[Rfam]
RNA sequence: GACUCCCCAGGAAGGGAUGAUGUUCUCCUUGAAACCCAAGAAAAGGAUUCUGAGCCUCAGGCUUUGCGGAGCUCUCUGGCCCCUGACCUUCCUUAGCUGAGU
Dot-bracket structure: ........(((((((.......................................................................))))))).........
Numbered sequence: 001g002a003c004u005c006c007c008c009a010g011g012a013a014g015g016g017a018u019g020a021u022g023u024u025c026u027c028c029u030u031g032a033a034a035c036c037c038a039a040g041a042a043a044a045g046g047a048u049u050c051u052g053a054g055c056c057u058c059a060g061g062c063u064u065u066g067c068g069g070a071g072c073u074c075u076c077u078g079g080c081c082c083c084u085g086a087c088c089u090u091c092c093u094u095a096g097c098u099g100a101g102u
Stems, first nucleotide, its partner, number of pairs: 009093007
A member of the RNA family "Small nucleolar RNA SNORD124" from Octodon degus, 102 nucleotides long. Pairs were carried over by alignment from the consensus structure, which was predicted with WAR.